The family of this 118-nucleotide sequence from Nicotiana attenuata is "Small nucleolar RNA snoR104". For this family Rfam cites "Experimental RNomics: identification of 140 candidates for small non-messenger RNAs in the plant Arabidopsis thaliana" (Marker et al., Curr Biol, 2002). It scores 61 bits against the family's covariance model. Rfam links the family to the GO terms RNA processing and nucleolus.
[Rfam]
RNA sequence: AGGGAUCGCAGUUAAGUUUGAGAUGUAUCCUGAUUCAAUCUUCCUAAAAAGAGUUUCUGGGAUUUCCUACUUGUGGUUCCGAGAUAGUGCUGCAAGUCUCAAAUAACCAGAUACAUAA
Number, nucleotide and partner (000 for none) at each position: 001a031002g030003g029004g000005a024006u023007c022008g000009c020010a000011g000012u000013u000014a000015a000016g000017u000018u000019u000020g009021a000022g007023a006024u005025g000026u000027a000028u000029c003030c002031u001032g000033a000034u000035u000036c000037a000038a000039u000040c000041u000042u000043c000044c000045u000046a000047a000048a000049a000050a000051g000052a000053g000054u000055u000056u111057c110058u109059g000060g000061g000062a000063u000064u000065u000066c000067c000068u000069a097070c096071u095072u094073g093074u092075g091076g090077u000078u000079c087080c000081g000082a000083g000084a000085u000086a000087g079088u000089g000090c076091u075092g074093c073094a072095a071096g070097u069098c000099u000100c000101a000102a000103a000104u000105a000106a000107c000108c000109a058110g057111a056112u000113a000114c000115a000116u000117a000118a000